[Rfam]
Nucleotides: 080
Stems, first nucleotide, its partner, number of pairs: 016048001018047003024080006032042002052069006
Number, partner (000 for none) and nucleotide at each position: 001000a002000g003000a004000g005000g006000u007000c008000a009000c010000a011000a012000g013000u014000u015000g016048g017000a018047g019046g020045u021000c022000a023000u024080a025079g026078u027077a028076g029075a030000a031000a032042u033041g034000c035000u036000c037000a038000c039000a040000g041033u042032g043000c044000a045020g046019c047018c048016c049000u050000g051000u052069c053068a054067g055066a056065u057064u058000c059000c060000a061000a062000c063000a064057a065056a066055u067054c068053u069052g070000c071000a072000a073000a074000g075029u076028c077027u078026g079025c080024u
Mammalian CPEB3 ribozyme: an 80-nucleotide sequence from Crocodylus porosus. Taxonomically the source falls in Crocodylus (Eukaryota, Eumetazoa, Teleostomi, Sauria). The family's consensus secondary structure is taken from published work.